Rfam assigns this 76-nucleotide sequence from Lepisosteus oculatus to the family "mir-216 microRNA precursor family". Gene Ontology terms of the family: RISC complex and miRNA-mediated post-transcriptional gene silencing. Clan: mir-216 clan. A search with the family's covariance model found it, with a score of 67 bits. The base pairs follow the family's consensus structure, which was predicted with WAR. On this family, see Shao et al., Gene 2008: "Identification of novel chicken microRNAs and analysis of their genomic organization".
RNA sequence: GUCUGGCGUAAUCUCAGCUGGCAACUGUGAGCAGUUAAUAGCUCCUCUCAUGGUGGCCGCUGGGAUUAUGCUAAAC
Numbered sequence: 001g002u003c004u005g006g007c008g009u010a011a012u013c014u015c016a017g018c019u020g021g022c023a024a025c026u027g028u029g030a031g032c033a034g035u036u037a038a039u040a041g042c043u044c045c046u047c048u049c050a051u052g053g054u055g056g057c058c059g060c061u062g063g064g065a066u067u068a069u070g071c072u073a074a075a076c
Stems, first nucleotide, its partner, number of pairs: 004073004009068009020058003023054001026052006